Source information:
The record is a 144-nucleotide RNA sequence from Eucalyptus grandis, which matches "small nucleolar RNA snoR137" in Rfam. A reference for the family is Chen and Wu (2009), "Mining small RNA sequencing data: a new approach to identify small nucleolar RNAs in Arabidopsis", Nucleic Acids Res. It scores 103 bits against the family's covariance model. Rfam links the family to the GO terms RNA processing and nucleolus.

[Rfam]
RNA sequence: GUUGCUUCCUAAUGGUGAUCUCCCUUAAAUGAAAUGAUGAGGGAUGAUUCAAGUUUCCGAAGCAUAAAUAUGUGGUCAGUGUUAAACAGCGCCGGUGCGAUUUACUUCGUGCUGCACUGGCGCUACCUGUCUGCUGAUAUAUUU
Numbered sequence: 001g002u003u004g005c006u007u008c009c010u011a012a013u014g015g016u017g018a019u020c021u022c023c024c025u026u027a028a029a030u031g032a033a034a035u036g037a038u039g040a041g042g043g044a045u046g047a048u049u050c051a052a053g054u055u056u057c058c059g060a061a062g063c064a065u066a067a068a069u070a071u072g073u074g075g076u077c078a079g080u081g082u083u084a085a086a087c088a089g090c091g092c093c094g095g096u097g098c099g100a101u102u103u104a105c106u107u108c109g110u111g112c113u114g115c116a117c118u119g120g121c122g123c124u125a126c127c128u129g130u131c132u133g134c135u136g137a138u139a140u141a142u143u144u
Stems, first nucleotide, its partner, number of pairs: 003064006016051003019047002021044005075138007088124003092120005